[Rfam]
RNA sequence: CAGUUAAAAAGCUCGUAGUUGAACCUUGGGCCUGGCCGGCCGGUCCGCCUCACCGCGUGCACUGGCUCCGGCCGGGCCUUUCCUCCUGGGGAACCGCAUGCCCUUCACUGGGCGUGCCGGGGAACCAGGACUUUUACUUUGAAAAAAUUAGAGUGUUCAAAGCAGGCCUAUGCUCGAAUACAUUAGCAUGGAAUAAUAGAAUAGGACGCGCGGUUCUAUUUUGUUGGUUUCUAGGACCGCCGUAAUGAUUAAUAGGGACAGUCGGGGGCAUCCGUAUUCAGUAGUCAGAGGUGAAAUUCUUGGAUCUACUGAAGACGAACUACUGCGAAAGCAUUUGCCAAGGAUGUUUUCAUUAAUCAGGAACGAAAGUUGGGGGAUCGAAGACGAUCAGAUACCGUCGUAGUCCCAACCGUAAACUAUGCCGACUAGGGAUCGGGCGGUGUUAUUCUUUGACCCGCUCGGCACCUUGCACGAAAGUACAAGUUUUUGGGUUCUGGGGGGAGUAUGGUCGCAAGGCUGAAACUUAAAGGAAU
Numbered sequence: 001c002a003g004u005u006a007a008a009a010a011g012c013u014c015g016u017a018g019u020u021g022a023a024c025c026u027u028g029g030g031c032c033u034g035g036c037c038g039g040c041c042g043g044u045c046c047g048c049c050u051c052a053c054c055g056c057g058u059g060c061a062c063u064g065g066c067u068c069c070g071g072c073c074g075g076g077c078c079u080u081u082c083c084u085c086c087u088g089g090g091g092a093a094c095c096g097c098a099u100g101c102c103c104u105u106c107a108c109u110g111g112g113c114g115u116g117c118c119g120g121g122g123a124a125c126c127a128g129g130a131c132u133u134u135u136a137c138u139u140u141g142a143a144a145a146a147a148u149u150a151g152a153g154u155g156u157u158c159a160a161a162g163c164a165g166g167c168c169u170a171u172g173c174u175c176g177a178a179u180a181c182a183u184u185a186g187c188a189u190g191g192a193a194u195a196a197u198a199g200a201a202u203a204g205g206a207c208g209c210g211c212g213g214u215u216c217u218a219u220u221u222u223g224u225u226g227g228u229u230u231c232u233a234g235g236a237c238c239g240c241c242g243u244a245a246u247g248a249u250u251a252a253u254a255g256g257g258a259c260a261g262u263c264g265g266g267g268g269c270a271u272c273c274g275u276a277u278u279c280a281g282u283a284g285u286c287a288g289a290g291g292u293g294a295a296a297u298u299c300u301u302g303g304a305u306c307u308a309c310u311g312a313a314g315a316c317g318a319a320c321u322a323c324u325g326c327g328a329a330a331g332c333a334u335u336u337g338c339c340a341a342g343g344a345u346g347u348u349u350u351c352a353u354u355a356a357u358c359a360g361g362a363a364c365g366a367a368a369g370u371u372g373g374g375g376g377a378u379c380g381a382a383g384a385c386g387a388u389c390a391g392a393u394a395c396c397g398u399c400g401u402a403g404u405c406c407c408a409a410c411c412g413u414a415a416a417c418u419a420u421g422c423c424g425a426c427u428a429g430g431g432a433u434c435g436g437g438c439g440g441u442g443u444u445a446u447u448c449u450u451u452g453a454c455c456c457g458c459u460c461g462g463c464a465c466c467u468u469g470c471a472c473g474a475a476a477g478u479a480c481a482a483g484u485u486u487u488u489g490g491g492u493u494c495u496g497g498g499g500g501g502a503g504u505a506u507g508g509u510c511g512c513a514a515g516g517c518u519g520a521a522a523c524u525u526a527a528a529g530g531a532a533u
Base pairs, nucleotide, nucleotide: 001496002495003494009493011364013362014361018357019356020355255351256350257349258348259346260345262343263342267339268338269337270336273317274316277313278312279311280310281309282308283307284306288299289298290297325332326331369410370409371408372407373406374405379403383399384398385397386396421492422491423490424485425484426483428467429466430465433462434461435460436459437458438457439456440455442454443453444452471478472477498525499524500523507518508517509516510515
Shown here is a 533-nucleotide part of an RNA from Brassica oleracea, a member of the family "Eukaryotic small subunit ribosomal RNA". A reference for the family is Yusupov et al. (2001), "Crystal structure of the ribosome at 5.5 A resolution", Science. NCBI's taxonomy places the organism under Eukaryota, Gunneridae, malvids, Brassica, Brassica oleracea.